[Rfam]
RNA sequence: AAUAGAGGUAAAGCGCCUGAACUCAAGCCGGUGUUCUGGUCUGACGGCUUGAGUUGACGAGGAAGGGGUUUAUCGAGUUAUUCGGCGGGUACCCCUCGGUUGACACGACCGUUAAAGGCAGCCAAAACCGGGCAGUGAUGCGCGGGACAAAUGCUGCCAGGUGGAAAAA
Numbered sequence: 001a002a003u004a005g006a007g008g009u010a011a012a013g014c015g016c017c018u019g020a021a022c023u024c025a026a027g028c029c030g031g032u033g034u035u036c037u038g039g040u041c042u043g044a045c046g047g048c049u050u051g052a053g054u055u056g057a058c059g060a061g062g063a064a065g066g067g068g069u070u071u072a073u074c075g076a077g078u079u080a081u082u083c084g085g086c087g088g089g090u091a092c093c094c095c096u097c098g099g100u101u102g103a104c105a106c107g108a109c110c111g112u113u114a115a116a117g118g119c120a121g122c123c124a125a126a127a128c129c130g131g132g133c134a135g136u137g138a139u140g141c142g143c144g145g146g147a148c149a150a151a152u153g154c155u156g157c158c159a160g161g162u163g164g165a166a167a168a169a
Stems, first nucleotide, its partner, number of pairs: 020055008029046001064096005073085004097111006117158005128145003132141003

glmS glucosamine-6-phosphate activated ribozyme aptamer: a 169-nucleotide RNA from Thermincola carboxydiphila. Lineage of the source: Bacteria > Bacillati > Bacillota > Thermincola > Thermincola carboxydiphila. Pairs were carried over by alignment from the consensus structure, which is taken from published work. This entry contains a glucosamine-6-phosphate activated ribozyme that is found in the mRNA for GlmS. GlmS is an enzyme that uses fructose-6-phosphate and glutamine to generate glucosamine-6-phosphate. Its family is annotated with catalytic activity and regulation of gene expression in the Gene Ontology.